This 156-nucleotide RNA sequence from Populus trichocarpa belongs to the Rfam family "MIR2912 microRNA precursor family". The match comes from Rfam's covariance-model search (124 bits).

RNA sequence: UCUAGAACUCGAGAUAUGGGCUGAACACUGAACAGUGUCUGGGCCGCAGGACAGAUUCAGACUUCACCGUUGUUGCUACAAUUUGGACUUGAAAACGGCUUUUUUAAAUCUUGGGCUCCACAGGAAAGUUGUAGGCCUAUGUCAUAUCUUUCCAUC
Numbered sequence: 001u002c003u004a005g006a007a008c009u010c011g012a013g014a015u016a017u018g019g020g021c022u023g024a025a026c027a028c029u030g031a032a033c034a035g036u037g038u039c040u041g042g043g044c045c046g047c048a049g050g051a052c053a054g055a056u057u058c059a060g061a062c063u064u065c066a067c068c069g070u071u072g073u074u075g076c077u078a079c080a081a082u083u084u085g086g087a088c089u090u091g092a093a094a095a096c097g098g099c100u101u102u103u104u105u106a107a108a109u110c111u112u113g114g115g116c117u118c119c120a121c122a123g124g125a126a127a128g129u130u131g132u133a134g135g136c137c138u139a140u141g142u143c144a145u146a147u148c149u150u151u152c153c154a155u156c
Stems, first nucleotide, its partner, number of pairs: 003154001005152003009146001011145001013143008021134003025130001027129003036122002041119003045115001048112004054105002059100002062098002072088003

The base pairs follow the family's consensus structure, which was predicted with RNAalifold. Taxonomically the source falls in Populus (Eukaryota, Spermatophyta, fabids, Malpighiales). Gene Ontology terms of the family: RISC complex and miRNA-mediated post-transcriptional gene silencing.